[Rfam]
The family of this 379-nucleotide RNA from Facklamia hominis is "Bacterial RNase P class B". The family's RNA type in Rfam is ribozyme. The base pairs follow the family's consensus structure, which is taken from published work. A search with the family's covariance model found it, with a score of 301 bits. Taxonomically the source falls in Facklamia hominis (Bacteria, Bacillati, Lactobacillales, Aerococcaceae). Rfam describes the family as follows. Ribonuclease P (RNase P) is a ubiquitous endoribonuclease, found in archaea, bacteria and eukarya as well as chloroplasts and mitochondria. Its best characterised activity is the generation of mature 5'-ends of tRNAs by cleaving the 5'-leader elements of precursor-tRNAs. Cellular RNase Ps are ribonucleoproteins. RNA from bacterial RNase Ps retains its catalytic activity in the absence of the protein subunit, i.e. it is a ribozyme. Isolated eukaryotic and archaeal RNase P RNA has not been shown to retain its catalytic function, but is still essential for the catalytic activity of the holoenzyme. Although the archaeal and eukaryotic holoenzyme s have a much greater protein content than the bacterial ones, the RNA cores from all the three lineages are homologous -- helices corresponding to P1, P2, P3, P4, and P10/11 are common to all cellular RNase P RNAs. Yet, there is considerable sequence variation, particularly among the eukaryotic RNAs.

RNA sequence: AAGGUUAGGUAAUCGCGGUCAACUUCUGUUGACUGAGGAAAGUCCAUGCUCGCACAAUGCUGAAAUGCUUGUAGUGAUCGUGCUUAGCGAAACAAUAAGCUAAGGUAACUUCACCGUUAACGGCGGGAAAAACUUCUAAGGCUACAGCUAUGAAGGAGUAUCCCAUAACGUGCCACAGAGACGAUUUUUUGCAGAAAUGCAAAAACUGGAACGCUGGUAAACCCCUCGAGCGAGCAACCCAAAUUUGGUAGGGGCACUUCUUGAAAGGAACGACCUUUGCGUCGGGUAACGGACAAGAAGGCAUGUAAAUGCAGAUAGAUGAUUACCCCAUCAUCGAUGGUACCUAUCAAUCGAUGAUGACAGAACAUGGCUUAUCGAU
Numbered sequence: 001a002a003g004g005u006u007a008g009g010u011a012a013u014c015g016c017g018g019u020c021a022a023c024u025u026c027u028g029u030u031g032a033c034u035g036a037g038g039a040a041a042g043u044c045c046a047u048g049c050u051c052g053c054a055c056a057a058u059g060c061u062g063a064a065a066u067g068c069u070u071g072u073a074g075u076g077a078u079c080g081u082g083c084u085u086a087g088c089g090a091a092a093c094a095a096u097a098a099g100c101u102a103a104g105g106u107a108a109c110u111u112c113a114c115c116g117u118u119a120a121c122g123g124c125g126g127g128a129a130a131a132a133c134u135u136c137u138a139a140g141g142c143u144a145c146a147g148c149u150a151u152g153a154a155g156g157a158g159u160a161u162c163c164c165a166u167a168a169c170g171u172g173c174c175a176c177a178g179a180g181a182c183g184a185u186u187u188u189u190u191g192c193a194g195a196a197a198u199g200c201a202a203a204a205a206c207u208g209g210a211a212c213g214c215u216g217g218u219a220a221a222c223c224c225c226u227c228g229a230g231c232g233a234g235c236a237a238c239c240c241a242a243a244u245u246u247g248g249u250a251g252g253g254g255c256a257c258u259u260c261u262u263g264a265a266a267g268g269a270a271c272g273a274c275c276u277u278u279g280c281g282u283c284g285g286g287u288a289a290c291g292g293a294c295a296a297g298a299a300g301g302c303a304u305g306u307a308a309a310u311g312c313a314g315a316u317a318g319a320u321g322a323u324u325a326c327c328c329c330a331u332c333a334u335c336g337a338u339g340g341u342a343c344c345u346a347u348c349a350a351u352c353g354a355u356g357a358u359g360a361c362a363g364a365a366c367a368u369g370g371c372u373u374a375u376c377g378a379u
Stems, first nucleotide, its partner, number of pairs: 004379003007375001008327007016035006040373003044370005049234005054072004059068002078229003082225001083104006105121001106119004122224002125164004133155004140149003170222002172218003186205008238253003257300007301312004330358009